[Rfam]
RNA sequence: CGCGACCCCUCGUGCGGCGUCAUCUUGCCGAACUCCCCCAGGGCCGGAAGGCAGCAAGGGUAGGUGAGCUCUGGCGGGUGCACGGGGGGUCCUUACA
Numbered sequence: 001c002g003c004g005a006c007c008c009c010u011c012g013u014g015c016g017g018c019g020u021c022a023u024c025u026u027g028c029c030g031a032a033c034u035c036c037c038c039c040a041g042g043g044c045c046g047g048a049a050g051g052c053a054g055c056a057a058g059g060g061u062a063g064g065u066g067a068g069c070u071c072u073g074g075c076g077g078g079u080g081c082a083c084g085g086g087g088g089g090u091c092c093u094u095a096c097a
Stems, first nucleotide, its partner, number of pairs: 004091011015078001018076005024068006035060003043052003